The family of this 69-nucleotide RNA from Pelodiscus sinensis is "Small nucleolar RNA SNORD123". Lineage of the source: Eukaryota > Craniata > Euteleostomi > Cryptodira > Pelodiscus. Rfam 15.1 lists 518 matches to the family in 509 species.

Nucleotides: 069
Base pairs, nucleotide, nucleotide: 001069002068003067004066005065006064
Number, partner (000 for none) and nucleotide at each position: 001069g002068g003067u004066g005065a006064a007000a008000a009000u010000g011000a012000u013000g014000a015000a016000a017000c018000u019000u020000g021000g022000g023000g024000u025000a026000u027000u028000g029000a030000u031000u032000c033000a034000u035000a036000u037000g038000a039000c040000u041000u042000g043000a044000a045000a046000a047000g048000a049000c050000c051000a052000u053000c054000c055000a056000u057000u058000u059000c060000c061000u062000g063000a064006u065005u066004c067003a068002c069001c